[Rfam]
RNA sequence: AUGUGAGGGCGAUCUGGCUGCAACAUCUGUCACCCCAUUGGUCGCCAGGGUUGAUUCGGCUGAUCUGGCUGGCUAGGCGGGUGUCCUCUUCCUCCCUCACCGCUCCACGUGUGUCCCUCCCGAAGAUGCGCGCUCGGUCGAAGAGGACAACCUUCCCCGAUAGAGGCAGGUAUCGUUCAUCGGUCAAGGGUUUACUUACGGUAGCAGCUCACCUGCUAGAAUCUCCAAACAAGCCCUCAAGGUCCAUUUGUAGGAGAACGUAGAGUAGUCAGAGCCAUGAAGAUGAUUAAGGGAGUGGAGCAUCUCCCUUAUGA
Numbered sequence: 001a002u003g004u005g006a007g008g009g010c011g012a013u014c015u016g017g018c019u020g021c022a023a024c025a026u027c028u029g030u031c032a033c034c035c036c037a038u039u040g041g042u043c044g045c046c047a048g049g050g051u052u053g054a055u056u057c058g059g060c061u062g063a064u065c066u067g068g069c070u071g072g073c074u075a076g077g078c079g080g081g082u083g084u085c086c087u088c089u090u091c092c093u094c095c096c097u098c099a100c101c102g103c104u105c106c107a108c109g110u111g112u113g114u115c116c117c118u119c120c121c122g123a124a125g126a127u128g129c130g131c132g133c134u135c136g137g138u139c140g141a142a143g144a145g146g147a148c149a150a151c152c153u154u155c156c157c158c159g160a161u162a163g164a165g166g167c168a169g170g171u172a173u174c175g176u177u178c179a180u181c182g183g184u185c186a187a188g189g190g191u192u193u194a195c196u197u198a199c200g201g202u203a204g205c206a207g208c209u210c211a212c213c214u215g216c217u218a219g220a221a222u223c224u225c226c227a228a229a230c231a232a233g234c235c236c237u238c239a240a241g242g243u244c245c246a247u248u249u250g251u252a253g254g255a256g257a258a259c260g261u262a263g264a265g266u267a268g269u270c271a272g273a274g275c276c277a278u279g280a281a282g283a284u285g286a287u288u289a290a291g292g293g294a295g296u297g298g299a300g301c302a303u304c305u306c307c308c309u310u311a312u313g314a
Base pairs, nucleotide, nucleotide: 001104003100004099005098006097007096008095009094011091012090016088017087023084024083025082026081027080028079029078030077031076033072034071035068036067037066040065041064042063043062044060045059046058115170116166117165118164119163120137121136122135123134125133138160139159140158145156146155147154201275202273208268209267213263214262215261216260223256224255225254226253229251230250231249232248233247287313289310290309291308292307293306294303
The family of this 314-nucleotide sequence from Nyctiprogne leucopyga is "7SK RNA". The organism belongs to Nyctiprogne, within Eukaryota. Pairs were carried over by alignment from the consensus structure, which is taken from published work. A search with the family's covariance model found it, with a score of 245 bits.